[Rfam]
Nucleotides: 143
Stems, first nucleotide, its partner, number of pairs: 011128004018034007035123006045054002055108003063076004079103004
Number, partner (000 for none) and nucleotide at each position: 001000a002000u003000u004000g005000c006000a007000g008000a009000u010000c011128g012127g013126c014125c015000a016000a017000a018034u019033c020032c021031c022030a023029g024028g025000g026000c027000a028024c029023c030022u031021g032020g033019g034018a035123a036122c037121g038120g039119a040118g041000g042000a043000c044000c045054c046053a047000a048000u049000u050000a051000a052000g053046u054045g055108g056107g057106g058000u059000u060000a061000a062000u063076u064075c065074u066073a067000c068000u069000u070000c071000g072000g073066u074065a075064g076063a077000a078000g079103g080102g081101a082100u083000g084000a085000g086000a087000a088000a089000g090000c091000u092000u093000c094000u095000u096000c097000g098000c099000c100082a101081u102080c103079c104000u105000a106057c107056c108055c109000g110000u111000c112000a113000g114000c115000u116000a117000a118040c119039u120038u121037c122036g123035u124000c125014g126013g127012c128011u129000a130000a131000a132000g133000c134000g135000a136000g137000g138000g139000a140000g141000g142000u143000c

The family of this 143-nucleotide RNA sequence from Ammoniphilus sp. CFH 90114 is "c-di-AMP riboswitch aptamer (ydaO/yuaA leader)". Gene Ontology terms of the family: cyclic-di-AMP binding and regulation of gene expression. From the family's description: This family represents a conserved RNA structure found upstream of the ydaO and yuaA genes in Bacillus subtilis and related genes in other bacteria. The ydaO/yuaA element is thought to act as a genetic 'off' switch for the ydaO and yuaA genes in its native state. It is believed that the element may be triggered during osmotic shock leading to activation of ydaO, a predicted amino acid transporter gene, and members of the yuaA-yubG operon which code for KtrA and KtrB K+ transporters.